[Rfam]
RNA: Glycine riboswitch aptamer
RNA sequence: CGAUCCCUCGCGGGAGAGAUCACGGUCCGGUUCGCCGGACAGUGGCGCCGAAGGAGCAACCGCCCCGGAAACUCUCAGGCAAAAGGACCGCAAGGGGGAU
Numbered sequence: 001c002g003a004u005c006c007c008u009c010g011c012g013g014g015a016g017a018g019a020u021c022a023c024g025g026u027c028c029g030g031u032u033c034g035c036c037g038g039a040c041a042g043u044g045g046c047g048c049c050g051a052a053g054g055a056g057c058a059a060c061c062g063c064c065c066c067g068g069a070a071a072c073u074c075u076c077a078g079g080c081a082a083a084a085g086g087a088c089c090g091c092a093a094g095g096g097g098g099a100u
Stems, first nucleotide, its partner, number of pairs: 006095003010091004020045004047080003050076002054074003060068002